[Rfam]
RNA sequence: UGGUGACCUGAAGCUCCCUGGCUGUCACUCUGUCCCAGUCCCCUCCUGGCCCGGGGGACACAGCCUGAGUCCAAGUAAAGUCUGUGGGGUCCUGACCC
Numbered sequence: 001u002g003g004u005g006a007c008c009u010g011a012a013g014c015u016c017c018c019u020g021g022c023u024g025u026c027a028c029u030c031u032g033u034c035c036c037a038g039u040c041c042c043c044u045c046c047u048g049g050c051c052c053g054g055g056g057g058a059c060a061c062a063g064c065c066u067g068a069g070u071c072c073a074a075g076u077a078a079a080g081u082c083u084g085u086g087g088g089g090u091c092c093u094g095a096c097c098c
Base pairs, nucleotide, nucleotide: 002097003096004095005091006090007089008088009087011083013081014080015079021076022075023074027070028069029068030067032065034063039057040056041055042054043053
Shown here is a 98-nucleotide RNA sequence from Canis lupus, a member of the family "mir-8813 microRNA precursor family". Its family is annotated with miRNA-mediated post-transcriptional gene silencing and RISC complex in the Gene Ontology. It scores 76 bits against the family's covariance model.